[Rfam]
RNA: Small Cajal body specific RNA 1
Organism: Jacana jacana
Nucleotides: 166
Base pairs, nucleotide, nucleotide: 003089004088005087006086007085008084016078017077018076020074021073022072024070025069026068028060029059030058031057032056033054036051038049039048103160104159105158124139125138129134141156142155143154144153145152146151
Number, partner (000 for none) and nucleotide at each position: 001000g002000a003089g004088c005087a006086c007085u008084u009000g010000a011000u012000a013000c014000u015000a016078a017077c018076c019000g020074a021073g022072c023000c024070a025069u026068c027000c028060g029059u030058a031057u032056c033054c034000c035000a036051g037000g038049c039048c040000u041000g042000g043000u044000g045000c046000c047000c048039g049038g050000g051036u052000c053000u054033g055000g056032g057031a058030u059029a060028c061000a062000c063000c064000a065000u066000g067000u068026g069025a070024u071000u072022g073021c074020u075000g076018g077017g078016u079000c080000c081000c082000a083000a084008a085007a086006g087005u088004g089003c090000g091000a092000c093000a094000u095000u096000a097000a098000a099000g100000c101000a102000a103160g104159c105158c106000c107000u108000g109000a110000a111000g112000u113000g114000u115000u116000u117000a118000a119000g120000c121000u122000c123000a124139g125138u126000g127000u128000a129134u130000g131000a132000a133000g134129g135000a136000u137000a138125a139124c140000a141156c142155u143154g144153g145152g146151u147000u148000a149000u150000a151146g152145c153144u154143c155142a156141g157000a158105g159104g160103c161000a162000c163000a164000g165000a166000a